[Rfam]
RNA: Small nucleolar RNA SNORD45
Organism: Thalassarche chlororhynchos
RNA sequence: AGUCAGUGAUGAGUGUUGGCAUGUGUUAUCUGCUCUAAAGUUGCUAUUUAUCUCCACUUUAGCUCUAGAAUUAUUCUGAGUACUCU
Numbered sequence: 001a002g003u004c005a006g007u008g009a010u011g012a013g014u015g016u017u018g019g020c021a022u023g024u025g026u027u028a029u030c031u032g033c034u035c036u037a038a039a040g041u042u043g044c045u046a047u048u049u050a051u052c053u054c055c056a057c058u059u060u061a062g063c064u065c066u067a068g069a070a071u072u073a074u075u076c077u078g079a080g081u082a083c084u085c086u
Stems, first nucleotide, its partner, number of pairs: 001084003004080001